[Rfam]
RNA sequence: CGAGUCCUGCCGCCGCCCGGAUGACCGGUCGACAGGAGUGGAUCGGCAGGAGUGGAGGACCCAAGCACGACGGGUCGCCGGAGCGUCAGUUCCGAGCAGCCCUUGGGGUGAAGCCGCGGCAACGCGGCCGGGCAACUUCGCCAGCCCGAAUCCGACAGGUCAUCCUUCACAGGCGGCUGACGAAGGGUUG
Numbered sequence: 001c002g003a004g005u006c007c008u009g010c011c012g013c014c015g016c017c018c019g020g021a022u023g024a025c026c027g028g029u030c031g032a033c034a035g036g037a038g039u040g041g042a043u044c045g046g047c048a049g050g051a052g053u054g055g056a057g058g059a060c061c062c063a064a065g066c067a068c069g070a071c072g073g074g075u076c077g078c079c080g081g082a083g084c085g086u087c088a089g090u091u092c093c094g095a096g097c098a099g100c101c102c103u104u105g106g107g108g109u110g111a112a113g114c115c116g117c118g119g120c121a122a123c124g125c126g127g128c129c130g131g132g133c134a135a136c137u138u139c140g141c142c143a144g145c146c147c148g149a150a151u152c153c154g155a156c157a158g159g160u161c162a163u164c165c166u167u168c169a170c171a172g173g174c175g176g177c178u179g180a181c182g183a184a185g186g187g188u189u190g
Base pairs, nucleotide, nucleotide: 001172005051006050007049008048009047010046011045012044052170053169054168055167056166057165062105063104064103065102106153107152108151114127115126116125117124130147131146132145133144

The family of this 190-nucleotide RNA sequence from Streptomyces phyllanthi is "c-di-AMP riboswitch aptamer (ydaO/yuaA leader)". Rfam describes the family as follows. This family represents a conserved RNA structure found upstream of the ydaO and yuaA genes in Bacillus subtilis and related genes in other bacteria. The ydaO/yuaA element is thought to act as a genetic 'off' switch for the ydaO and yuaA genes in its native state.